[Rfam]
RNA sequence: GGGGUGGACUAAGGGUAGGAGGCCUGAAGAAUGGCUUCUCUGUUUAUAACACAUCCAACAAAAAUCUGGGUUUACUCAUCACAGGUGGCAGAAUAUAUUGGCCUUCCUAUGACAUCAUGCCCUAUAUAG
Numbered sequence: 001g002g003g004g005u006g007g008a009c010u011a012a013g014g015g016u017a018g019g020a021g022g023c024c025u026g027a028a029g030a031a032u033g034g035c036u037u038c039u040c041u042g043u044u045u046a047u048a049a050c051a052c053a054u055c056c057a058a059c060a061a062a063a064a065u066c067u068g069g070g071u072u073u074a075c076u077c078a079u080c081a082c083a084g085g086u087g088g089c090a091g092a093a094u095a096u097a098u099u100g101g102c103c104u105u106c107c108u109a110u111g112a113c114a115u116c117a118u119g120c121c122c123u124a125u126a127u128a129g
Stems, first nucleotide, its partner, number of pairs: 002056005013045007021037001022035003069122002072119001076114001080111002083104003087099002090096001